A member of the RNA family "tRNA" from Campylobacter lari, 74 nucleotides long.

[Rfam]
RNA sequence: GGGCCUAUAGCUCAGCUGGUUAGAGUGCACCCCUGAUAAGGGUGAGGUCACAAGUUCAAGUCUUGUUAGGCCCA
Numbered sequence: 001g002g003g004c005c006u007a008u009a010g011c012u013c014a015g016c017u018g019g020u021u022a023g024a025g026u027g028c029a030c031c032c033c034u035g036a037u038a039a040g041g042g043u044g045a046g047g048u049c050a051c052a053a054g055u056u057c058a059a060g061u062c063u064u065g066u067u068a069g070g071c072c073c074a
Stems, first nucleotide, its partner, number of pairs: 001073007010026004028044005050066005

The family's consensus secondary structure is taken from published work.